The family of this 93-nucleotide sequence from Cervus elaphus is "Small nucleolar RNA SNORD116". A reference for the family is Cavaille et al. (2000), "Identification of brain-specific and imprinted small nucleolar RNA genes exhibiting an unusual genomic organization", Proc Natl Acad Sci U S A. Rfam classes the family as a C/D-box small nucleolar RNA. Rfam links the family to the GO terms RNA processing and nucleolus. The family has 48 seed sequences and 3,260 matches in Rfam 15.1. A search with the family's covariance model found it, with a score of 90 bits. The organism belongs to Cervus elaphus, within Eukaryota.

RNA sequence: AGAUCAAUGAUGACAUCCUCACUUGCAUUCCUUGGAAAAUCUGAACAAAGUGAGUGAGAACUCACUACCGUCUCCUCAUUGAAACUGAGGUCC
Numbered sequence: 001a002g003a004u005c006a007a008u009g010a011u012g013a014c015a016u017c018c019u020c021a022c023u024u025g026c027a028u029u030c031c032u033u034g035g036a037a038a039a040u041c042u043g044a045a046c047a048a049a050g051u052g053a054g055u056g057a058g059a060a061c062u063c064a065c066u067a068c069c070g071u072c073u074c075c076u077c078a079u080u081g082a083a084a085c086u087g088a089g090g091u092c093c
Stems, first nucleotide, its partner, number of pairs: 002092004026056005032048003